[Rfam]
RNA: T-box leader
RNA sequence: UCAAAAUCCAUGAGGGGGAAGAAGGCUGAUUAAAUUGCUCAGCGAGCCGGGGUAGGUGCAAGCCCGGUCAAGGAAGCAGCCGGGCCACCCCUGAGUGCUGGCCGAACUAACAGUAAGCUAAGCCGGUUCUUCACCGUUAUCGAGGUCUAAGUGGCUGCAUUUUUGCAAAGGCAGCCAAUUAGGGUGGUACCACGGGUAUUUUAAACUCCGUCCCUUUC
Numbered sequence: 001u002c003a004a005a006a007u008c009c010a011u012g013a014g015g016g017g018g019a020a021g022a023a024g025g026c027u028g029a030u031u032a033a034a035u036u037g038c039u040c041a042g043c044g045a046g047c048c049g050g051g052g053u054a055g056g057u058g059c060a061a062g063c064c065c066g067g068u069c070a071a072g073g074a075a076g077c078a079g080c081c082g083g084g085c086c087a088c089c090c091c092u093g094a095g096u097g098c099u100g101g102c103c104g105a106a107c108u109a110a111c112a113g114u115a116a117g118c119u120a121a122g123c124c125g126g127u128u129c130u131u132c133a134c135c136g137u138u139a140u141c142g143a144g145g146u147c148u149a150a151g152u153g154g155c156u157g158c159a160u161u162u163u164u165g166c167a168a169a170g171g172c173a174g175c176c177a178a179u180u181a182g183g184g185u186g187g188u189a190c191c192a193c194g195g196g197u198a199u200u201u202u203a204a205a206c207u208c209c210g211u212c213c214c215u216u217u218c
Stems, first nucleotide, its partner, number of pairs: 008095001015091004024081005035071003046068006098122002100119003124136003154175005160169001181215004192211005
Dot-bracket structure: .......(......((((.....(((((......(((........((((((...........))))))))).....)))))......))))...)..(((((..............))).)).(((.......))).................(((((.(........).))))).....((((.......(((((..........)))))))))...